This 168-nucleotide RNA from Mageeibacillus indolicus belongs to the Rfam family "Lysine riboswitch aptamer". The family's consensus secondary structure is taken from published work. From the family's description: Riboswitches are metabolite binding domains within certain messenger RNAs that serve as precision sensors for their corresponding targets. Allosteric rearrangement of mRNA structure is mediated by ligand binding, and this results in modulation of gene expression. This family includes riboswitches that sense lysine in a number of genes involved in lysine metabolism, including lysC. Gene Ontology term of the family: lysine biosynthetic process.
[Rfam]
RNA sequence: UCAAUAGGUAGAGGCGCAUUGGUUAAAUAGUAAGCGUACAUUCGAGGUGGGCGACACCGUACGGCGAAAGGUAACCGAUGCCGAAGCAGGAGUCAUCGCCGGGGCUUUUGCUGGUUCGUCAUCAUAAUAGGUGCCGAACUGUCACAUAUGUGGAGAGCUAACCAUUGG
Numbered sequence: 001u002c003a004a005u006a007g008g009u010a011g012a013g014g015c016g017c018a019u020u021g022g023u024u025a026a027a028u029a030g031u032a033a034g035c036g037u038a039c040a041u042u043c044g045a046g047g048u049g050g051g052c053g054a055c056a057c058c059g060u061a062c063g064g065c066g067a068a069a070g071g072u073a074a075c076c077g078a079u080g081c082c083g084a085a086g087c088a089g090g091a092g093u094c095a096u097c098g099c100c101g102g103g104g105c106u107u108u109u110g111c112u113g114g115u116u117c118g119u120c121a122u123c124a125u126a127a128u129a130g131g132u133g134c135c136g137a138a139c140u141g142u143c144a145c146a147u148a149u150g151u152g153g154a155g156a157g158c159u160a161a162c163c164a165u166u167g168g
Base pairs, nucleotide, nucleotide: 007162009160010159011158016081017080018079019078020077021076022075023074024073035063036062037061038060039059085112086111087110088109089108090107091106092105093104094103096101113140114139115138116137117136118135120133121132122131123130142153143152144151145150